RNA sequence: UUAUUGUCAGCUGAAACGAAGUGCUGGACGCACGGGCUGCGGGCAAAG
Numbered sequence: 001u002u003a004u005u006g007u008c009a010g011c012u013g014a015a016a017c018g019a020a021g022u023g024c025u026g027g028a029c030g031c032a033c034g035g036g037c038u039g040c041g042g043g044c045a046a047a048g
Stems, first nucleotide, its partner, number of pairs: 008039005021033004
Shown here is a 48-nucleotide RNA, a member of the family "ssnA RNA". It is annotated as a cis-regulatory element. The sequence is in the family's curated seed alignment.